[Rfam]
RNA: MIR5269 microRNA precursor family
RNA sequence: UUGGUUUAAAUAAUUGUGGAUCUAUGUUUUGAAAAUUGAACUCACACAAAGUGGUAGGACAUAUAUUGAUUUCAUCCAA
Numbered sequence: 001u002u003g004g005u006u007u008a009a010a011u012a013a014u015u016g017u018g019g020a021u022c023u024a025u026g027u028u029u030u031g032a033a034a035a036u037u038g039a040a041c042u043c044a045c046a047c048a049a050a051g052u053g054g055u056a057g058g059a060c061a062u063a064u065a066u067u068g069a070u071u072u073c074a075u076c077c078a079a
Stems, first nucleotide, its partner, number of pairs: 001079004006074001008072004013067001015065004022057003025053007